[Rfam]
RNA sequence: ACACAUCUCCAGUUUGUGCGUGAAUCGAACCCCUUUUAGCCGUCCAUCUGUUUGAUAGAUAAUCCAACGGUGUUAGAUUCACGCACAAACUCGUGAUCAGUCU
Numbered sequence: 001a002c003a004c005a006u007c008u009c010c011a012g013u014u015u016g017u018g019c020g021u022g023a024a025u026c027g028a029a030c031c032c033c034u035u036u037u038a039g040c041c042g043u044c045c046a047u048c049u050g051u052u053u054g055a056u057a058g059a060u061a062a063u064c065c066a067a068c069g070g071u072g073u074u075a076g077a078u079u080c081a082c083g084c085a086c087a088a089a090c091u092c093g094u095g096a097u098c099a100g101u102c103u
Stems, first nucleotide, its partner, number of pairs: 001101002005097003011091016028074003032070002042060001044058001
A member of the RNA family "MIR403 microRNA precursor family" from Malus domestica, 103 nucleotides long.
Taxonomically the source falls in Malus (Eukaryota, Viridiplantae, Tracheophyta, Spermatophyta).
A reference for the family is Mica et al. (2009), "High throughput approaches reveal splicing of primary microRNA transcripts and tissue specific expression of mature microRNAs in Vitis vinifera", BMC Genomics.
Rfam links the family to the GO terms RISC complex and miRNA-mediated post-transcriptional gene silencing.
Pairs were carried over by alignment from the consensus structure, which was predicted with WAR.